The record is a 156-nucleotide sequence, which matches "Enterobacterial sRNA STnc430" in Rfam. Rfam's curators put it in the seed alignment.

RNA sequence: AACACAAUACCCGGUAAAUCUGAAAAUAUCAGAAACAGGAUAACGUUGAAUAAAUUAUUUUAGGAUUAAGCUCAAUUAAAGGGUGAAGUAAAAACAUAAAUAUCCUGGAGUAAUCUUAUAAAAAAGCCGAUAUUAAUAUCGGCUUUUUUAUUUCAU
Numbered sequence: 001a002a003c004a005c006a007a008u009a010c011c012c013g014g015u016a017a018a019u020c021u022g023a024a025a026a027u028a029u030c031a032g033a034a035a036c037a038g039g040a041u042a043a044c045g046u047u048g049a050a051u052a053a054a055u056u057a058u059u060u061u062a063g064g065a066u067u068a069a070g071c072u073c074a075a076u077u078a079a080a081g082g083g084u085g086a087a088g089u090a091a092a093a094a095c096a097u098a099a100a101u102a103u104c105c106u107g108g109a110g111u112a113a114u115c116u117u118a119u120a121a122a123a124a125a126g127c128c129g130a131u132a133u134u135a136a137u138a139u140c141g142g143c144u145u146u147u148u149u150a151u152u153u154c155a156u
Stems, first nucleotide, its partner, number of pairs: 015100001019065003023061006029054001035051001039047003107116002124145009